[Rfam]
RNA sequence: CCUGCCGAAGUUUCCCUCAGGAUAGCAGAAGCUCAUUUAUAUCAGUUUUAUGAGGUAAAGCGAAUGAUUAGAGGCCUUGGGGUUGAAACAACCUUAACCUAUUCUCAAACUUUAAAUAUGUAAGAAGUCCCUUGUUACUUAAUUGAACGUGGACAUUUGAAUGAGAGCUUCUAGUGGGCCAUUUUUGGUAAGCAGAACUGGCGAUGCGGGAUGAACCGAACGCAAGGUUAAGGUGCCGGAAUACACGCUCAUCAGACACCACAAAAGGUGUUAGUUCAUCUAGACAGCAGGACGGUGGCCAUGGAAGUCGGAAUCCGCUAAGGAAUGUGUAACAACUCACCUGCCGAAUGAACUAGCCCUGAAAAUGGAUGGCGCUCAAGCGUGUUACCUAUACCUUGCCGUCAGGGUAAAAGCGAUGCCCUGACGAGUAGGCAGGCGUGGGGGUCUUGUGACGAAGCUUUGGGAGUGAUCCCGAGUUGAACGACCUCUAGUGCAGAU
Number, nucleotide and partner (000 for none) at each position: 001c436002c435003u434004g433005c432006c431007g000008a000009a000010g000011u024012u000013u022014c021015c020016c000017u000018c000019a000020g015021g014022a013023u000024a011025g000026c000027a172028g171029a170030a169031g168032c167033u166034c000035a000036u000037u000038u000039a000040u000041a000042u000043c000044a000045g000046u125047u124048u123049u122050a121051u120052g119053a000054g000055g000056u000057a000058a113059a111060g110061c000062g000063a000064a000065u107066g106067a105068u000069u000070a102071g000072a100073g099074g098075c000076c000077u097078u096079g095080g094081g093082g092083u000084u090085g000086a000087a000088a000089c000090a084091a000092c082093c081094u080095u079096a078097a077098c074099c073100u072101a000102u070103u000104c000105u067106c066107a065108a000109a000110c060111u059112u000113u058114a000115a000116a000117u000118a000119u052120g051121u050122a049123a048124g047125a046126a000127g154128u153129c152130c151131c000132u000133u149134g148135u147136u146137a000138c000139u000140u000141a000142a000143u000144u000145g000146a136147a135148c134149g133150u000151g130152g129153a128154c127155a000156u000157u000158u000159g000160a000161a000162u000163g000164a000165g000166a033167g032168c031169u030170u029171c028172u027173a000174g000175u000176g000177g000178g202179c201180c200181a199182u000183u197184u196185u195186u194187g193188g000189u000190a000191a000192g000193c187194a186195g185196a184197a183198c000199u181200g180201g179202c178203g000204a000205u000206g000207c218208g217209g216210g000211a000212u000213g000214a000215a000216c209217c208218g207219a000220a000221c000222g399223c398224a397225a396226g395227g000228u393229u000230a000231a000232g389233g388234u387235g000236c000237c000238g000239g000240a000241a386242u000243a385244c000245a000246c382247g381248c380249u000250c000251a000252u000253c000254a000255g000256a000257c000258a000259c000260c000261a000262c000263a000264a000265a000266a360267g359268g358269u000270g357271u356272u355273a354274g353275u352276u351277c350278a349279u348280c000281u000282a000283g000284a000285c000286a000287g344288c343289a342290g341291g340292a000293c317294g316295g315296u000297g000298g000299c311300c310301a000302u000303g000304g000305a000306a000307g000308u000309c000310g300311g299312a000313a000314u000315c295316c294317g293318c322319u000320a000321a000322g318323g338324a000325a000326u000327g336328u335329g000330u000331a000332a000333c000334a000335a328336c327337u000338c323339a000340c291341c290342u289343g288344c287345c000346g000347a000348a279349u278350g277351a276352a275353c274354u273355a272356g271357c270358c268359c267360u266361g000362a000363a000364a000365a000366u000367g000368g000369a000370u000371g000372g000373c000374g000375c000376u000377c000378a000379a000380g248381c247382g246383u000384g000385u243386u241387a234388c233389c232390u000391a000392u000393a228394c000395c226396u225397u224398g223399c222400c426401g425402u424403c423404a422405g421406g420407g419408u418409a000410a000411a000412a000413g000414c000415g000416a000417u000418g408419c407420c406421c405422u404423g403424a402425c401426g400427a000428g000429u000430a000431g006432g005433c004434a003435g002436g001437c493438g000439u490440g489441g488442g487443g486444g485445u484446c483447u000448u000449g482450u481451g000452a000453c000454g000455a000456a000457g477458c476459u000460u000461u000462g000463g472464g471465a470466g000467u000468g000469a000470u465471c464472c463473c000474g000475a000476g458477u457478u000479g000480a000481a450482c449483g446484a445485c444486c443487u442488c441489u440490a439491g000492u000493g437494c000495a000496g000497a000498u000
Eukaryotic large subunit ribosomal RNA: a 498-nucleotide part of an RNA from Neolecta irregularis. Pairs were carried over by alignment from the consensus structure, which is taken from published work. The organism belongs to Neolecta irregularis, within Eukaryota.